[Rfam]
The record is a 102-nucleotide sequence from Alkalithermobacter paradoxus, which matches "Purine riboswitch aptamer" in Rfam. NCBI's taxonomy places the organism under Bacteria, Bacillota, Clostridia, Peptostreptococcales, Alkalithermobacter.
RNA sequence: CAAUUUAAAAAUUAAUUCGCUCGUAUAACUUCGGUAAUAUGGUCCGAAAGUCUCUACCGAGAAACCGUAAAAUUCUCGACUAUGGGUGAAAUUGUUAUUAUA
Numbered sequence: 001c002a003a004u005u006u007a008a009a010a011a012u013u014a015a016u017u018c019g020c021u022c023g024u025a026u027a028a029c030u031u032c033g034g035u036a037a038u039a040u041g042g043u044c045c046g047a048a049a050g051u052c053u054c055u056a057c058c059g060a061g062a063a064a065c066c067g068u069a070a071a072a073u074u075c076u077c078g079a080c081u082a083u084g085g086g087u088g089a090a091a092u093u094g095u096u097a098u099u100a101u102a
Base pairs, nucleotide, nucleotide: 018088019087020086021085022084023083024082025081030048031047032046033045034044058078059077060076061075062074063073